[Rfam]
RNA: Potassium channel RNA editing signal
RNA sequence: GUGGGCUACGGCGACAUGGCGCCAAAGACGUACGUGGGCAUGUUUGUGGGCGCUCUGUGUGCUCUAGCGGGCGUGUUGUGCAUCGCUCUGCCCGUGCCCGUCAUCGUGUCCAAC
Numbered sequence: 001g002u003g004g005g006c007u008a009c010g011g012c013g014a015c016a017u018g019g020c021g022c023c024a025a026a027g028a029c030g031u032a033c034g035u036g037g038g039c040a041u042g043u044u045u046g047u048g049g050g051c052g053c054u055c056u057g058u059g060u061g062c063u064c065u066a067g068c069g070g071g072c073g074u075g076u077u078g079u080g081c082a083u084c085g086c087u088c089u090g091c092c093c094g095u096g097c098c099c100g101u102c103a104u105c106g107u108g109u110c111c112a113a114c
Base pairs, nucleotide, nucleotide: 001114002113004111005110007108008107009106010105011104013102014101015100018097021095022094037077038076039075040074049063050062051061